Shown here is a 75-nucleotide RNA from Streptomyces sp. Rer75, a member of the family "ASpks TB sRNA". By type it is an antisense RNA.
RNA sequence: CUUGAUGGAGCCCAGCCACAGCGGCUGGUCCGCGUCGCGGUCCUGGCCGUAGGUGGCGAGCAGCGCCUGCGCCUC
Numbered sequence: 001c002u003u004g005a006u007g008g009a010g011c012c013c014a015g016c017c018a019c020a021g022c023g024g025c026u027g028g029u030c031c032g033c034g035u036c037g038c039g040g041u042c043c044u045g046g047c048c049g050u051a052g053g054u055g056g057c058g059a060g061c062a063g064c065g066c067c068u069g070c071g072c073c074u075c
Stems, first nucleotide, its partner, number of pairs: 014026004031071003038065002043060002047056003
A reference for the family is Arnvig and Young (2009), "Identification of small RNAs in Mycobacterium tuberculosis", Mol Microbiol.